Record summary: This 76-nucleotide RNA sequence belongs to the Rfam family "L13-Bacteroidia ribosomal protein leader". It is one of the family's seed sequences. It is annotated as a cis-regulatory leader. The base pairs follow the family's consensus structure, which is taken from published work.
[Rfam]
RNA sequence: GGGGCUAAACUUAGUAACCCCUGUGUAGAAGUGUUAAUAGUUGAAACUUAAGGCCAGGCUCAACGGUUAGUGAAUC
Numbered sequence: 001g002g003g004g005c006u007a008a009a010c011u012u013a014g015u016a017a018c019c020c021c022u023g024u025g026u027a028g029a030a031g032u033g034u035u036a037a038u039a040g041u042u043g044a045a046a047c048u049u050a051a052g053g054c055c056a057g058g059c060u061c062a063a064c065g066g067u068u069a070g071u072g073a074a075u076c
Base pairs, nucleotide, nucleotide: 001021002020003019004018034070035069036068037067038066040064041063042062043061044060047058048057049056